[Rfam]
RNA sequence: UUUCGUGUGAGGAGUGCGGACGCUUCUCAGGGUCGAAACAAGGACAGACUCCUGAGCUCGUCCGAU
Number, nucleotide and partner (000 for none) at each position: 001u000002u000003u000004c000005g000006u000007g000008u000009g000010a000011g000012g000013a000014g000015u000016g000017c000018g000019g062020a061021c060022g059023c000024u000025u000026c000027u055028c054029a053030g052031g051032g049033u048034c047035g000036a000037a000038a000039c000040a000041a000042g000043g000044a000045c000046a000047g034048a033049c032050u000051c031052c030053u029054g028055a027056g000057c000058u000059c022060g021061u020062c019063c000064g000065a000066u000

A member of the RNA family "Cyano-1 RNA" from Synechococcus sp. RCC307, 66 nucleotides long. The source organism's lineage runs through Bacteria, Cyanophyceae, Synechococcales, Synechococcaceae and Synechococcus. It is annotated as a small RNA. Pairs were carried over by alignment from the consensus structure, which is taken from published work.